[Rfam]
The record is a 354-nucleotide part of an RNA from Thalassotalea sp. LPB0316, which matches "Bacterial small subunit ribosomal RNA" in Rfam. For this family Rfam cites "The comparative RNA web (CRW) site: an online database of comparative sequence and structure information for ribosomal, intron, and other RNAs" (Cannone et al., BMC Bioinformatics, 2002).
RNA sequence: GGCGUAAAGCGUGCGUAGGCGGAUUGUUAAGCGAGAUGUGAAAUCCCGGGGCUCAACCUCGGAACUGCAUUUCGAACUGGCAGUCUAGAGUAUUGUAGAGGGUGGUGGAAUUUCCAGUGUAGCGGUGAAAUGCGUAGAGAUUGGAAGGAACAUCAGUGGCGAAGGCGGCCACCUGGACAAAUACUGACGCUGAGGCACGAAAGCGUGGGGAGCGAACAGGAUUAGAUACCCUGGUAGUCCACGCCGUAAACGAUGUCAACUAGCUGUCUGUGAACUUGAUUCGUGGGUAGCGUAGCUAACGCGCUAAGUUGACCGCCUGGGGAGUACGGCCGCAAGGUUAAAACUCAAAUGAAU
Numbered sequence: 001g002g003c004g005u006a007a008a009g010c011g012u013g014c015g016u017a018g019g020c021g022g023a024u025u026g027u028u029a030a031g032c033g034a035g036a037u038g039u040g041a042a043a044u045c046c047c048g049g050g051g052c053u054c055a056a057c058c059u060c061g062g063a064a065c066u067g068c069a070u071u072u073c074g075a076a077c078u079g080g081c082a083g084u085c086u087a088g089a090g091u092a093u094u095g096u097a098g099a100g101g102g103u104g105g106u107g108g109a110a111u112u113u114c115c116a117g118u119g120u121a122g123c124g125g126u127g128a129a130a131u132g133c134g135u136a137g138a139g140a141u142u143g144g145a146a147g148g149a150a151c152a153u154c155a156g157u158g159g160c161g162a163a164g165g166c167g168g169c170c171a172c173c174u175g176g177a178c179a180a181a182u183a184c185u186g187a188c189g190c191u192g193a194g195g196c197a198c199g200a201a202a203g204c205g206u207g208g209g210g211a212g213c214g215a216a217c218a219g220g221a222u223u224a225g226a227u228a229c230c231c232u233g234g235u236a237g238u239c240c241a242c243g244c245c246g247u248a249a250a251c252g253a254u255g256u257c258a259a260c261u262a263g264c265u266g267u268c269u270g271u272g273a274a275c276u277u278g279a280u281u282c283g284u285g286g287g288u289a290g291c292g293u294a295g296c297u298a299a300c301g302c303g304c305u306a307a308g309u310u311g312a313c314c315g316c317c318u319g320g321g322g323a324g325u326a327c328g329g330c331c332g333c334a335a336g337g338u339u340a341a342a343a344c345u346c347a348a349a350u351g352a353a354u
Stems, first nucleotide, its partner, number of pairs: 001317003009314001011198004016192001018191003022085007030078002032074009046062006089185003093180004100174007107151001111147008122133003159166002203244006212238002217233004255313006263291012295302002319346003328339004